A member of the RNA family "Caulobacter sRNA CC0196" from Asticcacaulis excentricus, 58 nucleotides long. On this family, see Landt et al., Mol Microbiol 2008: "Small non-coding RNAs in Caulobacter crescentus". The base pairs follow the family's consensus structure, which was predicted with RNAalifold. A search with the family's covariance model found it, with a score of 35 bits.
[Rfam]
RNA sequence: UUUUUGAAGACACCCACCAUCACCAAACUUUUCAACCCGGUCUUCUGGCCGGGUUUUU
Numbered sequence: 001u002u003u004u005u006g007a008a009g010a011c012a013c014c015c016a017c018c019a020u021c022a023c024c025a026a027a028c029u030u031u032u033c034a035a036c037c038c039g040g041u042c043u044u045c046u047g048g049c050c051g052g053g054u055u056u057u058u
Stems, first nucleotide, its partner, number of pairs: 034055008